[Rfam]
RNA sequence: UCAUAAAGCAUUGCACCCAGAGUCUGGUUUACCAGACAUUGUACCUGGAGCUUUUCUUUCUUUUUAUAAAUAAAAU
Numbered sequence: 001u002c003a004u005a006a007a008g009c010a011u012u013g014c015a016c017c018c019a020g021a022g023u024c025u026g027g028u029u030u031a032c033c034a035g036a037c038a039u040u041g042u043a044c045c046u047g048g049a050g051c052u053u054u055u056c057u058u059u060c061u062u063u064u065u066a067u068a069a070a071u072a073a074a075a076u
Base pairs, nucleotide, nucleotide: 005054006053007052008051009050017048018047019046020045022037023036024035025034026033
About this RNA:
Rfam assigns this 76-nucleotide RNA sequence from Oreochromis niloticus to the family "U1A polyadenylation inhibition element (PIE)". Rfam links the family to the GO term regulation of mRNA polyadenylation. Rfam classes the family as a cis-regulatory element. Lineage of the source: Eukaryota > Metazoa > Vertebrata > Euteleostomi > Oreochromis. The family's consensus secondary structure is taken from published work. Rfam's curators write: This family represents the U1A polyadenylation inhibition element (PIE). The literature on the family includes a 2004 paper in Biochemistry by Clerte and Hall, "Global and Local Dynamics of the U1A Polyadenylation Inhibition Element (PIE) RNA and PIE RNA-U1A Complexes".